This 80-nucleotide sequence from Candidatus Kuenenia stuttgartensis belongs to the Rfam family "c-di-GMP-I riboswitch aptamer".
RNA sequence: UUUGAAAAAAGGCAAACCAAUUGUGAGGCUGGGACGCAAAGCCAUGGGUCUUCAGGAAAGAAGAAUGCCAGGUCGCCAAA
Numbered sequence: 001u002u003u004g005a006a007a008a009a010a011g012g013c014a015a016a017c018c019a020a021u022u023g024u025g026a027g028g029c030u031g032g033g034a035c036g037c038a039a040a041g042c043c044a045u046g047g048g049u050c051u052u053c054a055g056g057a058a059a060g061a062a063g064a065a066u067g068c069c070a071g072g073u074c075g076c077c078a079a080a
Base pairs, nucleotide, nucleotide: 012037013036017032018031019030021028022027041073042072043071045070046069047068049064050063051062052061053060
Pairs were carried over by alignment from the consensus structure, which is taken from published work.